A member of the RNA family "SAM-I/IV (S-adenosyl methionine) riboswitch aptamer" from Sphingomonas sanxanigenens, 109 nucleotides long. NCBI's taxonomy places the organism under Bacteria, Alphaproteobacteria, Sphingomonadales, Sphingomonadaceae, Sphingomonas sanxanigenens.
RNA sequence: CCGCAACAUCAAGAGUCGGGCCGACGCCCGGCACCAACCUGCUCCCGGGCAAGGUGGUGCCUCGUUUCAAACGAGGGAUGUGGCCGGACCGGCAACAAACGGGUAUCCA
Numbered sequence: 001c002c003g004c005a006a007c008a009u010c011a012a013g014a015g016u017c018g019g020g021c022c023g024a025c026g027c028c029c030g031g032c033a034c035c036a037a038c039c040u041g042c043u044c045c046c047g048g049g050c051a052a053g054g055u056g057g058u059g060c061c062u063c064g065u066u067u068c069a070a071a072c073g074a075g076g077g078a079u080g081u082g083g084c085c086g087g088a089c090c091g092g093c094a095a096c097a098a099a100c101g102g103g104u105a106u107c108c109a
Stems, first nucleotide, its partner, number of pairs: 006081005015032001017030005033058003038054003041050003083093004
The family's consensus secondary structure is taken from published work. It scores 55 bits against the family's covariance model. Rfam links the family to the GO terms regulation of gene expression and S-adenosylmethionine metabolic process. Rfam 15.1 lists 567 matches to the family in 508 species.